[Rfam]
RNA: MIR6151 microRNA precursor family
Organism: Nicotiana attenuata
RNA sequence: AUUCGCUGGAUGAGUUUGAGGCAUUGGAUUGAGUUCAUUCAAUCUGAGCCCUACAUUCAUCAGGGGUAUUC
Dot-bracket structure: ...(.((.(((((((.((.(((.(((((((((......)))))))))))).)).))))))).)).).....